A member of the RNA family "Small nucleolar RNA SNORD17" from Semnornis frantzii, 249 nucleotides long. Rfam's curators write: The snoRNA HBI-43 belongs to the C/D family of snoRNAs, guiding 2'O-ribose methylation at position U3797 of the 28S rRNA. Pseudouridylation in position U3797 is predicted to be guided by the H/ACA snoRNA ACA48. Taxonomically the source falls in Semnornis (Eukaryota, Opisthokonta, Chordata, Coelurosauria).

RNA sequence: GUGAAGUGAUGACAAAGUUUAUCCAUUCUCUGAGUGCAGUGGUGCUGUCCUCCUGCAGCAACCAGAUUCCUGUUCUAGGGUCUGGAUGUCAUGCAACCUCCAGAGACUCUUCCAGUCUCCCGGUGUCCUACUGGGGGCUGGUGUGGUCUGUGGCUGGCUUCCUGCAGGAGUGAAUUGGUGCCAGCAGGGUUGGAGACCCUCUCUGGGGGGCCUCCAUCCUGACUGAGAUGAGGGAUGAUGUCUGAUCAC
Numbered sequence: 001g002u003g004a005a006g007u008g009a010u011g012a013c014a015a016a017g018u019u020u021a022u023c024c025a026u027u028c029u030c031u032g033a034g035u036g037c038a039g040u041g042g043u044g045c046u047g048u049c050c051u052c053c054u055g056c057a058g059c060a061a062c063c064a065g066a067u068u069c070c071u072g073u074u075c076u077a078g079g080g081u082c083u084g085g086a087u088g089u090c091a092u093g094c095a096a097c098c099u100c101c102a103g104a105g106a107c108u109c110u111u112c113c114a115g116u117c118u119c120c121c122g123g124u125g126u127c128c129u130a131c132u133g134g135g136g137g138c139u140g141g142u143g144u145g146g147u148c149u150g151u152g153g154c155u156g157g158c159u160u161c162c163u164g165c166a167g168g169a170g171u172g173a174a175u176u177g178g179u180g181c182c183a184g185c186a187g188g189g190u191u192g193g194a195g196a197c198c199c200u201c202u203c204u205g206g207g208g209g210g211c212c213u214c215c216a217u218c219c220u221g222a223c224u225g226a227g228a229u230g231a232g233g234g235a236u237g238a239u240g241u242c243u244g245a246u247c248a249c
Stems, first nucleotide, its partner, number of pairs: 010248003017241002020238001023234002026232003030227002034223002039185002042182001043180005050172001051169007059088002062085004068080004093161001095159001097157002106147002112141006119135007187220003191216004
Annotation: On this family, see Huttenhofer et al., EMBO J 2001: "RNomics: an experimental approach that identifies 201 candidates for novel, small, non-messenger RNAs in mouse". The family's RNA type in Rfam is C/D-box small nucleolar RNA.